Rfam assigns this 105-nucleotide RNA from Vulpes vulpes to the family "mir-8834 microRNA precursor family".
A search with the family's covariance model found it, with a score of 43 bits.
RNA sequence: AGGAGAAACAACCACAGGGGAAGCAGCCAGCUCUGGUGCUUGGAUUCAGCUCCCAGAGUAACUGUGGAGCUCUCUGUCUGCAGGGCCUGGAGGCUCCGGUGCGGG
Numbered sequence: 001a002g003g004a005g006a007a008a009c010a011a012c013c014a015c016a017g018g019g020g021a022a023g024c025a026g027c028c029a030g031c032u033c034u035g036g037u038g039c040u041u042g043g044a045u046u047c048a049g050c051u052c053c054c055a056g057a058g059u060a061a062c063u064g065u066g067g068a069g070c071u072c073u074c075u076g077u078c079u080g081c082a083g084g085g086c087c088u089g090g091a092g093g094c095u096c097c098g099g100u101g102c103g104g105g
Stems, first nucleotide, its partner, number of pairs: 002097004009089002012085002019078002022075002025073002029071007038059004
Annotation: The organism belongs to Vulpes, within Eukaryota.